The family of this 74-nucleotide sequence from Plutella xylostella is "mir-71 microRNA precursor family".
For this family Rfam cites "The silkworm (Bombyx mori) microRNAs and their expressions in multiple developmental stages" (Yu et al., PLoS One, 2008).
The base pairs follow the family's consensus structure, which was predicted with RNAalifold.
The family has 36 seed sequences and 372 matches in Rfam 15.1.
RNA sequence: GCCAUAUGAAAGACAUGGGUAGUGAGAUGUCCAAGUACAUCAAAAAUUCUCACUACCUUGUCUUUCAUGUGGAC
Numbered sequence: 001g002c003c004a005u006a007u008g009a010a011a012g013a014c015a016u017g018g019g020u021a022g023u024g025a026g027a028u029g030u031c032c033a034a035g036u037a038c039a040u041c042a043a044a045a046a047u048u049c050u051c052a053c054u055a056c057c058u059u060g061u062c063u064u065u066c067a068u069g070u071g072g073a074c
Stems, first nucleotide, its partner, number of pairs: 008066008017058003021054007